[Rfam]
Nucleotides: 259
Base pairs, nucleotide, nucleotide: 012036013035014034015033019031020030021029023228025226026225039102040101043099044098045097046096047094048093049089051087052086053085054084055083059079149253152250153249154248155247156246157245169244170243171242172241173240174239175202176201177200180196181195207238212234213233214232215231216230217229
Number, partner (000 for none) and nucleotide at each position: 001000g002000a003000a004000g005000u006000c007000c008000c009000c010000g011000u012036c013035g014034g015033g016000u017000a018000a019031g020030g021029g022000c023228u024000a025226g026225c027000c028000a029021c030020c031019c032000g033015c034014c035013c036012g037000u038000a039102u040101c041000g042000a043099g044098u045097c046096u047094u048093g049089g050000a051087c052086u053085u054084g055083c056000g057000g058000c059079g060000g061000a062000g063000u064000g065000c066000g067000g068000a069000g070000g071000c072000a073000c074000g075000a076000a077000c078000a079059c080000a081000a082000g083055g084054c085053a086052g087051g088000a089049u090000a091000a092000g093048c094047g095000u096046a097045g098044a099043c100000a101040g102039a103000g104000a105000a106000u107000c108000c109000u110000g111000u112000a113000g114000g115000c116000c117000g118000u119000a120000g121000g122000g123000g124000u125000g126000g127000u128000c129000g130000c131000g132000c133000c134000c135000c136000c137000u138000g139000a140000a141000g142000u143000g144000c145000g146000g147000g148000u149253a150000c151000a152250g153249c154248u155247u156246c157245g158000a159000a160000a161000a162000g163000c164000u165000c166000a167000a168000u169244c170243c171242g172241g173240a174239u175202g176201c177200c178000g179000a180196g181195g182000g183000u184000c185000u186000u187000a188000a189000c190000g191000u192000g193000c194000a195181c196180c197000g198000a199000a200177g201176g202175c203000a204000a205000c206000a207238c208000a209000g210000a211000a212234g213233c214232a215231c216230c217229c218000g219000u220000a221000u222000a223000u224000g225026g226025c227000g228023a229217g230216g231215g232214u233213g234212u235000g236000g237000a238207g239174a240173u241172c242171c243170g244169g245157c246156g247155g248154a249153g250152u251000c252000c253149u254000c255000a256000g257000g258000c259000c
Notes:
Group II catalytic intron D1-D4-6: a 259-nucleotide RNA from Methylocaldum marinum. Group II introns are found in rRNA, tRNA and mRNA of organelles in fungi, plants and protists, and also in mRNA in bacteria. Lineage of the source: Bacteria > Gammaproteobacteria > Methylococcales > Methylococcaceae > Methylocaldum. It scores 107 bits against the family's covariance model.